[Rfam]
RNA sequence: GGAAUUUCGUCAGGGUCGACCUCCUCCCCGACCUUGACGGAUAAGGCCAGCGUUCACCUCCUCCCGAUCGCUGGCCGCCGAAACGGCGCCCGCCGGAUCUCCUCCCCCGGCGGGCGUUGUUA
Numbered sequence: 001g002g003a004a005u006u007u008c009g010u011c012a013g014g015g016u017c018g019a020c021c022u023c024c025u026c027c028c029c030g031a032c033c034u035u036g037a038c039g040g041a042u043a044a045g046g047c048c049a050g051c052g053u054u055c056a057c058c059u060c061c062u063c064c065c066g067a068u069c070g071c072u073g074g075c076c077g078c079c080g081a082a083a084c085g086g087c088g089c090c091c092g093c094c095g096g097a098u099c100u101c102c103u104c105c106c107c108c109g110g111c112g113g114g115c116g117u118u119g120u121u122a
Stems, first nucleotide, its partner, number of pairs: 007040003011036007045076008054067001086117011